The record is a 136-nucleotide RNA from Nonomuraea jiangxiensis, which matches "Group II catalytic intron D1-D4-4" in Rfam. The family has 90 seed sequences and 840 matches in Rfam 15.1. The match comes from Rfam's covariance-model search (97 bits). Rfam describes the family as follows. Group II introns are found in rRNA, tRNA and mRNA of organelles in fungi, plants and protists, and also in mRNA in bacteria.
RNA sequence: CUGCCGGUGUGAGUCCGGUCCGGGUAAUCGCCGGGGAGCCCGGUAGCAGGCUGGCGGCUUGGUCUAGAAACGGGCCAGGUCGAAGCCCAGCGUCGAAAGCCCAUUUUGGGGAGCAACUGAGCGGUCCGUAGCGGAA
Numbered sequence: 001c002u003g004c005c006g007g008u009g010u011g012a013g014u015c016c017g018g019u020c021c022g023g024g025u026a027a028u029c030g031c032c033g034g035g036g037a038g039c040c041c042g043g044u045a046g047c048a049g050g051c052u053g054g055c056g057g058c059u060u061g062g063u064c065u066a067g068a069a070a071c072g073g074g075c076c077a078g079g080u081c082g083a084a085g086c087c088c089a090g091c092g093u094c095g096a097a098a099g100c101c102c103a104u105u106u107u108g109g110g111g112a113g114c115a116a117c118u119g120a121g122c123g124g125u126c127c128g129u130a131g132c133g134g135a136a
Stems, first nucleotide, its partner, number of pairs: 020043005050091005055082006064073002100110004113129002